Shown here is a 116-nucleotide sequence from Rhamnella rubrinervis, a member of the family "U5 spliceosomal RNA". The family's consensus secondary structure is taken from published work.
[Rfam]
RNA sequence: AGCUGCGGGGUGCGCAUUAUAGCCAACUAUUCUUUCGCCUUUUACUAAAAGAAUACCGUAUGUGCCGCUCAUGGGGUCAUACGCCUAUUUUUGGAGAGGUAGAAGAGUUAUACUUA
Numbered sequence: 001a002g003c004u005g006c007g008g009g010g011u012g013c014g015c016a017u018u019a020u021a022g023c024c025a026a027c028u029a030u031u032c033u034u035u036c037g038c039c040u041u042u043u044a045c046u047a048a049a050a051g052a053a054u055a056c057c058g059u060a061u062g063u064g065c066c067g068c069u070c071a072u073g074g075g076g077u078c079a080u081a082c083g084c085c086u087a088u089u090u091u092u093g094g095a096g097a098g099g100u101a102g103a104a105g106a107g108u109u110a111u112a113c114u115u116a
Base pairs, nucleotide, nucleotide: 004076006074009066010065011064012063013062018060019059028055029054030053031052032051033050034049035048097115098114099113100112101111